Overview
Archaeal signal recognition particle RNA: a 314-nucleotide sequence from Bathyarchaeum sp.
[Rfam]
RNA sequence: UGGCGGGUCUAGGCGGGGGGCUAGGGGUCCCCUGAACCGUAAACCCUCUACACGACGGGCUGAAUGCUUUGGCGAGGCGUUAAAGAUUGUCAGGCAUCCUCGGUCCUCGAACCGUGACUAUCCGUCCCUUUAGGCUGGCGGUCAUGGAGCAGCAUUCGUAGGAAAGCUGUUAACCGCGUCUAUCAGGCGAAUCUGGCCAGGCCCGGGAGGGAGCAACCUAAGCUUGGACGUUCAGCGCUUAGGGGACCGCGGAUACGAGUUCAGAGAUCGGGGAAACUGGCGAAAACUGGGCGUCGAACCAAGGCGACCCGCCA
Numbered sequence: 001u002g003g004c005g006g007g008u009c010u011a012g013g014c015g016g017g018g019g020g021c022u023a024g025g026g027g028u029c030c031c032c033u034g035a036a037c038c039g040u041a042a043a044c045c046c047u048c049u050a051c052a053c054g055a056c057g058g059g060c061u062g063a064a065u066g067c068u069u070u071g072g073c074g075a076g077g078c079g080u081u082a083a084a085g086a087u088u089g090u091c092a093g094g095c096a097u098c099c100u101c102g103g104u105c106c107u108c109g110a111a112c113c114g115u116g117a118c119u120a121u122c123c124g125u126c127c128c129u130u131u132a133g134g135c136u137g138g139c140g141g142u143c144a145u146g147g148a149g150c151a152g153c154a155u156u157c158g159u160a161g162g163a164a165a166g167c168u169g170u171u172a173a174c175c176g177c178g179u180c181u182a183u184c185a186g187g188c189g190a191a192u193c194u195g196g197c198c199a200g201g202c203c204c205g206g207g208a209g210g211g212a213g214c215a216a217c218c219u220a221a222g223c224u225u226g227g228a229c230g231u232u233c234a235g236c237g238c239u240u241a242g243g244g245g246a247c248c249g250c251g252g253a254u255a256c257g258a259g260u261u262c263a264g265a266g267a268u269c270g271g272g273g274a275a276a277c278u279g280g281c282g283a284a285a286a287c288u289g290g291g292c293g294u295c296g297a298a299c300c301a302a303g304g305c306g307a308c309c310c311g312c313c314a
Base pairs, nucleotide, nucleotide: 001314002313003312004311005310006309007308008307009306010062011061012060014059015033016032017031018030019029020028021027037058038057039056040055066305067304068303069302070301071300072299076295077294078293079292080290081289082288085287087285088282089281090280091279092278093277099272100271101270102269103268104267105266107264109262110261111260112259119255120254121253122252123251124250125249126245127244128243129242130241132239133238134236135235136234137233138231139230140229141180143178145176146175147174148171149170150169151168152167153166155164156163157162183227184226185225186224187223188222195218196217202211203210204209
Clan: SRP clan.